The family of this 72-nucleotide RNA sequence from Shimia gijangensis is "tRNA".
RNA sequence: GCGGGCGUUGUGUAAUGGUUAAGACCUCAGUUUUCCAAACUGAAGAUGCGGGUUCGAUUCCCGCCGCCCGCU
Numbered sequence: 001g002c003g004g005g006c007g008u009u010g011u012g013u014a015a016u017g018g019u020u021a022a023g024a025c026c027u028c029a030g031u032u033u034u035c036c037a038a039a040c041u042g043a044a045g046a047u048g049c050g051g052g053u054u055c056g057a058u059u060c061c062c063g064c065c066g067c068c069c070g071c072u
Base pairs, nucleotide, nucleotide: 001071002070003069004068005067006066007065010025011024013022027043028042029041030040031039048064049063050062051061052060

A search with the family's covariance model found it, with a score of 61 bits. The family's consensus secondary structure is taken from published work.